[Rfam]
RNA sequence: UAGCGCUUGCUAAAAAUAGAGUCGAAACUGGACUGGUCUAGUAGCUCCUUUUGAGCGAAAAAUCGGUAGACGAAAUAAGAA
Numbered sequence: 001u002a003g004c005g006c007u008u009g010c011u012a013a014a015a016a017u018a019g020a021g022u023c024g025a026a027a028c029u030g031g032a033c034u035g036g037u038c039u040a041g042u043a044g045c046u047c048c049u050u051u052u053g054a055g056c057g058a059a060a061a062a063u064c065g066g067u068a069g070a071c072g073a074a075a076u077a078a079g080a081a
Stems, first nucleotide, its partner, number of pairs: 001012004021071003032067006044056002
RNA: RT-18 RNA